[Rfam]
RNA sequence: ACAAAAGCGGGGACCUGUUGCCUCUGUGAACCUGUCUCUCGUAAACUUCAGGGAAAUCACUUGCAUCGUUAUUGGGUGAACCUCUGUAGGUGUUGUUAGUGACAGAAGGUUCAGUAAAUGAUGCCACAUUA
Numbered sequence: 001a002c003a004a005a006a007g008c009g010g011g012g013a014c015c016u017g018u019u020g021c022c023u024c025u026g027u028g029a030a031c032c033u034g035u036c037u038c039u040c041g042u043a044a045a046c047u048u049c050a051g052g053g054a055a056a057u058c059a060c061u062u063g064c065a066u067c068g069u070u071a072u073u074g075g076g077u078g079a080a081c082c083u084c085u086g087u088a089g090g091u092g093u094u095g096u097u098a099g100u101g102a103c104a105g106a107a108g109g110u111u112c113a114g115u116a117a118a119u120g121a122u123g124c125c126a127c128a129u130u131a
Stems, first nucleotide, its partner, number of pairs: 005048003011037002014034001017031001064123007077113007
Dot-bracket structure: ....(((...((.(..(.............)..).))........)))...............(((((((......(((((((.......................)))))))...)))))))........
A member of the RNA family "Small nucleolar RNA snoR74" from Tetracentron sinense, 131 nucleotides long. Lineage of the source: Eukaryota > Streptophytina > Spermatophyta > Magnoliopsida > Tetracentron. The literature on the family includes a 2002 paper in Curr Biol by Marker et al., "Experimental RNomics: identification of 140 candidates for small non-messenger RNAs in the plant Arabidopsis thaliana". The base pairs follow the family's consensus structure, which was predicted with WAR. It scores 103 bits against the family's covariance model.